[Rfam]
This 229-nucleotide RNA from Paenibacillus sp. FSL R7-0331 belongs to the Rfam family "c-di-AMP riboswitch aptamer (ydaO/yuaA leader)".
A reference for the family is Barrick et al. (2004), "New RNA motifs suggest an expanded scope for riboswitches in bacterial genetic control", Proc Natl Acad Sci U S A.
The organism belongs to Paenibacillus, within Bacteria.
The match comes from Rfam's covariance-model search (78 bits).
RNA sequence: UGGAUCGUCUCGCUGAGUCUCCGUAUGGAGAACGGGGGAACCAAUAAUGCACUGCCGCAUGAGCGUACAUAGAGUACAACCAGGAAAUGCCGCAGACUUUAUUUGAUUUCUUCACGUGGUCUUUGGGGUGAAUUUGAGGGCAACCGCCGUGAGCGGGUGACCUGAGAUAGGGCGUCUCUCUUAUGCCCGAACCCGACAGCUAACCCCGUAAGCGCAAGUAAGAGAGGAA
Numbered sequence: 001u002g003g004a005u006c007g008u009c010u011c012g013c014u015g016a017g018u019c020u021c022c023g024u025a026u027g028g029a030g031a032a033c034g035g036g037g038g039a040a041c042c043a044a045u046a047a048u049g050c051a052c053u054g055c056c057g058c059a060u061g062a063g064c065g066u067a068c069a070u071a072g073a074g075u076a077c078a079a080c081c082a083g084g085a086a087a088u089g090c091c092g093c094a095g096a097c098u099u100u101a102u103u104u105g106a107u108u109u110c111u112u113c114a115c116g117u118g119g120u121c122u123u124u125g126g127g128g129u130g131a132a133u134u135u136g137a138g139g140g141c142a143a144c145c146g147c148c149g150u151g152a153g154c155g156g157g158u159g160a161c162c163u164g165a166g167a168u169a170g171g172g173c174g175u176c177u178c179u180c181u182u183a184u185g186c187c188c189g190a191a192c193c194c195g196a197c198a199g200c201u202a203a204c205c206c207c208g209u210a211a212g213c214g215c216a217a218g219u220a221a222g223a224g225a226g227g228a229a
Stems, first nucleotide, its partner, number of pairs: 011214004018031003032209006042125002126194003134167002170188004